[Rfam]
RNA sequence: AAAGCGGUGUCCGAAAAGCUAACAGAGUAGGAG
Number, nucleotide and partner (000 for none) at each position: 001a000002a000003a020004g019005c018006g000007g000008u000009g000010u032011c031012c030013g000014a000015a000016a000017a000018g005019c004020u003021a000022a000023c000024a000025g000026a000027g000028u000029a000030g012031g011032a010033g000

A member of the RNA family "DUF805b RNA", 33 nucleotides long. Pairs were carried over by alignment from the consensus structure, which is taken from published work.